This 201-nucleotide RNA sequence from Escherichia coli belongs to the Rfam family "IS009". The base pairs follow the family's consensus structure, which was predicted with CMfinder. For this family Rfam cites "Genome-wide detection of novel regulatory RNAs in E. coli" (Raghavan et al., Genome Res, 2011). The family's RNA type in Rfam is non-coding RNA gene. The source organism's lineage runs through Bacteria, Gammaproteobacteria, Enterobacterales, Enterobacteriaceae and Escherichia coli.
RNA sequence: UGAAUGAUAAAAAUGGCGCAAAUACAGCGCCAUUUUUAUUGGUUAAAAACAUUGUUUUUAACUUUCUGAUGCAGAUAGCCAGUGAGUACAUCGCGCUACUUCAGGAUGCUGUAGAUCCGGAGAACACUAUAGAGGAAGAGGCAUUGUUGCUGGCAGAUGGAAGAAGUUUCGGGUUUUGUUAUCCCUGAAAAACGAAGCCCC
Dot-bracket structure: .......(..(....(.(.........).)....)..)...........................(((..(....(.((..((((.....)))))).).(((.((((.......))))))).....)..))).....................................................................